[Rfam]
RNA: Small nucleolar RNA Z247
Organism: Panicum miliaceum
RNA sequence: GUCAUCGACGAUGACGAGCUGGUCUCCUACGUCCUCGCCGGUCUCGACUUCGACUACAAUCCGAUUGUUUCAGCCCUUGUCGCCAGGGCUCAACCGAUCACCAUCGGGGAGAUGUAUUCGCAGCUUCUCGCUUUUGAGC
Numbered sequence: 001g002u003c004a005u006c007g008a009c010g011a012u013g014a015c016g017a018g019c020u021g022g023u024c025u026c027c028u029a030c031g032u033c034c035u036c037g038c039c040g041g042u043c044u045c046g047a048c049u050u051c052g053a054c055u056a057c058a059a060u061c062c063g064a065u066u067g068u069u070u071c072a073g074c075c076c077u078u079g080u081c082g083c084c085a086g087g088g089c090u091c092a093a094c095c096g097a098u099c100a101c102c103a104u105c106g107g108g109g110a111g112a113u114g115u116a117u118u119c120g121c122a123g124c125u126u127c128u129c130g131c132u133u134u135u136g137a138g139c
Stems, first nucleotide, its partner, number of pairs: 005137004094107005